[Rfam]
RNA sequence: CUGCCACGCGCGGGAGAGUGCGGACGUGUCCGCCGCCGAAGGAGCAACCGCCCCGGAAUCUCUCAGGCAACAGGGACCGCGCGGGGUAC
Numbered sequence: 001c002u003g004c005c006a007c008g009c010g011c012g013g014g015a016g017a018g019u020g021c022g023g024a025c026g027u028g029u030c031c032g033c034c035g036c037c038g039a040a041g042g043a044g045c046a047a048c049c050g051c052c053c054c055g056g057a058a059u060c061u062c063u064c065a066g067g068c069a070a071c072a073g074g075g076a077c078c079g080c081g082c083g084g085g086g087u088a089c
Base pairs, nucleotide, nucleotide: 007083008082009081010080011079012078013077020033021032022031023030035068036067037066038064039063042062043061044060048056049055
A member of the RNA family "Glycine riboswitch aptamer" from Sphingomonas sp. Leaf42, 89 nucleotides long. The source organism's lineage runs through Bacteria, Pseudomonadota, Alphaproteobacteria, Sphingomonadaceae and Sphingomonas. The pairing is the family consensus, mapped onto this sequence. Rfam links the family to the GO term glycine biosynthetic process.